Shown here is an 86-nucleotide RNA sequence from Anaerosolibacter carboniphilus, a member of the family "c-di-GMP-I riboswitch aptamer". NCBI's taxonomy places the organism under Bacteria, Bacillati, Clostridia, Peptostreptococcales, Anaerosolibacter.
RNA sequence: UACCGAUAAUAGCAAACCCAUCGAAAGAUGGAGACGCAAAGCUGCGGGCCUAAGGUCUUAUAGACAAUGGCAGCCGGGUUGCCGAA
Numbered sequence: 001u002a003c004c005g006a007u008a009a010u011a012g013c014a015a016a017c018c019c020a021u022c023g024a025a026a027g028a029u030g031g032a033g034a035c036g037c038a039a040a041g042c043u044g045c046g047g048g049c050c051u052a053a054g055g056u057c058u059u060a061u062a063g064a065c066a067a068u069g070g071c072a073g074c075c076g077g078g079u080u081g082c083c084g085a086a
Base pairs, nucleotide, nucleotide: 012037013036018031019030020029021028022027040080041079042078043077045076046075047074048071049070050069055065056064057063058062
The match comes from Rfam's covariance-model search (83 bits).